[Rfam]
RNA: mir-548 microRNA precursor family
RNA sequence: UAUUAGGUAGGUGCAAACGUAAUUGUGGGUUUUGCCAUUUUUUGUAAUGGCAAAAACCGCAAUUACGUUUGCACCUACCUAAUG
Numbered sequence: 001u002a003u004u005a006g007g008u009a010g011g012u013g014c015a016a017a018c019g020u021a022a023u024u025g026u027g028g029g030u031u032u033u034g035c036c037a038u039u040u041u042u043u044g045u046a047a048u049g050g051c052a053a054a055a056a057c058c059g060c061a062a063u064u065a066c067g068u069u070u071g072c073a074c075c076u077a078c079c080u081a082a083u084g
Stems, first nucleotide, its partner, number of pairs: 001084028030055010